[Rfam]
RNA sequence: UUGCAGUGAUGACCAUCUUAGGACACCUUUGGAAUUCACCAUGAAAACACAUUUUAGUCUGAGCAAC
Numbered sequence: 001u002u003g004c005a006g007u008g009a010u011g012a013c014c015a016u017c018u019u020a021g022g023a024c025a026c027c028u029u030u031g032g033a034a035u036u037c038a039c040c041a042u043g044a045a046a047a048c049a050c051a052u053u054u055u056a057g058u059c060u061g062a063g064c065a066a067c
Base pairs, nucleotide, nucleotide: 001066002065003064004063